[Rfam]
Nucleotides: 129
Stems, first nucleotide, its partner, number of pairs: 005049001007047004017037005022031001065122004069117004075110001079107002082104003087099003
Number, partner (000 for none) and nucleotide at each position: 001000u002000a003000u004000a005049u006000c007047a008046c009045u010044g011000c012000a013000c014000c015000u016000g017037a018036c019035c020034a021033g022031u023000u024000c025000u026000u027000u028000a029000u030000u031022g032000g033021c034020u035019g036018g037017u038000g039000u040000a041000a042000u043000g044010c045009a046008g047007u048000a049005g050000u051000g052000a053000g054000u055000u056000g057000a058000u059000a060000c061000u062000a063000a064000c065122u066121c067120c068119a069117g070116c071115u072114u073000a074000a075110g076000a077000a078000a079107c080106a081000a082104g083103g084102u085000u086000g087099u088098u089097c090000u091000u092000c093000g094000u095000g096000u097089g098088g099087g100000u101000g102084a103083c104082u105000c106080u107079g108000u109000g110075c111000c112000g113000a114072a115071a116070g117069c118000a119068u120067g121066g122065g123000a124000a125000c126000a127000g128000c129000c